[Rfam]
RNA sequence: AAAUUUGAUGUGAGAAUUGGAGGAAAUUAAAUAAAUUUUAGUUGCUUUUAUUUGGUUUUCUCCAAUAUCUCAUCUCUGACUU
Numbered sequence: 001a002a003a004u005u006u007g008a009u010g011u012g013a014g015a016a017u018u019g020g021a022g023g024a025a026a027u028u029a030a031a032u033a034a035a036u037u038u039u040a041g042u043u044g045c046u047u048u049u050a051u052u053u054g055g056u057u058u059u060c061u062c063c064a065a066u067a068u069c070u071c072a073u074c075u076c077u078g079a080c081u082u
Stems, first nucleotide, its partner, number of pairs: 004079002007076002011072004016066006023059008032050002
Shown here is an 82-nucleotide sequence from Acer yangbiense, a member of the family "MIR2275 microRNA precursor family". The family has 13 seed sequences and 785 matches in Rfam 15.1. It scores 61 bits against the family's covariance model.